[Rfam]
RNA sequence: ACCCGGGUCCGGGCCCCUCUGGCAGCGACGCUGCGAUGUCGGACUCUUCCA
Dot-bracket structure: .....(((((((.........(((((...)))))....)))))))......
About this RNA: A member of the RNA family "terC RNA" from Allobosea sp. RAC05, 51 nucleotides long. Lineage of the source: Bacteria > Pseudomonadota > Hyphomicrobiales > Alloboseaceae > Allobosea. It scores 52 bits against the family's covariance model. The base pairs follow the family's consensus structure, which is taken from published work.